[Rfam]
RNA sequence: AUACAUUUCUCAACCUUUUGGCUAAGAUAAAGUGUGGUAUAUGUUCUUAUCAGUUUAAUAUCUAAUACGUGGGCAAUUGGCUCACAUGAUAUUAAAUUAACUUUUCUUGGGUGAGGAUCCUUGACAAUAGCUUGCUAUGGCCUGGCACACCCUAUCAAAUCUAAUUGCUAAAUUAGUUUUGUAUUCUUG
Numbered sequence: 001a002u003a004c005a006u007u008u009c010u011c012a013a014c015c016u017u018u019u020g021g022c023u024a025a026g027a028u029a030a031a032g033u034g035u036g037g038u039a040u041a042u043g044u045u046c047u048u049a050u051c052a053g054u055u056u057a058a059u060a061u062c063u064a065a066u067a068c069g070u071g072g073g074c075a076a077u078u079g080g081c082u083c084a085c086a087u088g089a090u091a092u093u094a095a096a097u098u099a100a101c102u103u104u105u106c107u108u109g110g111g112u113g114a115g116g117a118u119c120c121u122u123g124a125c126a127a128u129a130g131c132u133u134g135c136u137a138u139g140g141c142c143u144g145g146c147a148c149a150c151c152c153u154a155u156c157a158a159a160u161c162u163a164a165u166u167g168c169u170a171a172a173u174u175a176g177u178u179u180u181g182u183a184u185u186c187u188u189g
Stems, first nucleotide, its partner, number of pairs: 008027003012023001014021002048067003052063002069085006113151001116148001119145002127138004154184002158180002161176006
Dot-bracket structure: .......(((.(.((....)).).)))....................(((.((........)).))).((((((.....))))))...........................(..(..((......((((....)))).....))..)..)..((..((.((((((....))))))..))..)).....
A member of the RNA family "U2 spliceosomal RNA" from Nelumbo nucifera, 189 nucleotides long. The literature on the family includes a 1997 paper in Nucleic Acids Res by Zwieb, "The uRNA database". The source organism's lineage runs through Eukaryota, Viridiplantae, Euphyllophyta, Spermatophyta and Nelumbo. Rfam describes the family as follows. U2 is a small nuclear RNA (snRNA) component of the spliceosome (involved in pre-mRNA splicing). Complementary binding between U2 snRNA (in an area lying towards the 5' end but 3' to hairpin I) and the branchpoint sequence (BPS) of the intron results the bulging out of an unpaired adenosine, on the BPS, which initiates a nucleophilic attack at the intronic 5' splice site, thus starting the first of two transesterification reactions that mediate splicing. It scores 90 bits against the family's covariance model. The base pairs follow the family's consensus structure, which is taken from published work.